Lysine riboswitch aptamer: a 176-nucleotide sequence from Staphylococcus saccharolyticus. The match comes from Rfam's covariance-model search (105 bits). Pairs were carried over by alignment from the consensus structure, which is taken from published work. Lineage of the source: Bacteria > Bacillati > Bacilli > Caryophanales > Staphylococcus.

RNA sequence: AUUAGAGUUAGAGGUUGCAUUUUUAAUCAGUAGGUAAUCAGAAGUCGUAUGGGACAUAUGUUGAAUUAGCGAAAGGUAACGAUGCCGAAAUAAUUAUAAGACCAUAAAUUAUAAUUGUUGGGACAACUGUCGAUAAGAAGUUGUACUGUCACUGAAUGUGAUGUGCUACCUUAUAU
Numbered sequence: 001a002u003u004a005g006a007g008u009u010a011g012a013g014g015u016u017g018c019a020u021u022u023u024u025a026a027u028c029a030g031u032a033g034g035u036a037a038u039c040a041g042a043a044g045u046c047g048u049a050u051g052g053g054a055c056a057u058a059u060g061u062u063g064a065a066u067u068a069g070c071g072a073a074a075g076g077u078a079a080c081g082a083u084g085c086c087g088a089a090a091u092a093a094u095u096a097u098a099a100g101a102c103c104a105u106a107a108a109u110u111a112u113a114a115u116u117g118u119u120g121g122g123a124c125a126a127c128u129g130u131c132g133a134u135a136a137g138a139a140g141u142u143g144u145a146c147u148g149u150c151a152c153u154g155a156a157u158g159u160g161a162u163g164u165g166c167u168a169c170c171u172u173a174u175a176u
Base pairs, nucleotide, nucleotide: 006171007170009168010167011166017085018084019083020082021081023079024078025077033070035068036067037066038065089119090118091117092116093115094114095113096112097111098110099109120147121146123144124143125142126141127140128139130137149161150160151159152158